[Rfam]
RNA: Streptomyces-metK RNA
RNA sequence: GCGAGACACGUUGUCCACCGGCCGGAGCCGACCGAUAAACUGGUCCAGGACCGUACCGGGCGCAGCUCCCGGGCCCGUCCGCCAAUGAUCAGCCAGCAGCCGCUGCAACCCCAGGGAG
Number, nucleotide and partner (000 for none) at each position: 001g000002c000003g000004a000005g000006a000007c000008a000009c000010g000011u000012u000013g000014u000015c000016c000017a000018c000019c000020g000021g000022c000023c000024g000025g000026a000027g000028c000029c000030g000031a000032c000033c000034g000035a000036u000037a000038a000039a000040c000041u000042g000043g000044u000045c000046c000047a000048g080049g079050a078051c077052c000053g075054u000055a000056c072057c071058g070059g069060g068061c000062g000063c000064a000065g000066c000067u000068c060069c059070c058071g057072g056073g000074c000075c053076c000077g051078u050079c049080c048081g000082c000083c000084a000085a000086u000087g000088a000089u000090c000091a000092g000093c000094c105095a104096g103097c102098a000099g000100c000101c000102g097103c096104u095105g094106c000107a000108a000109c000110c000111c000112c000113a000114g000115g000116g000117a000118g000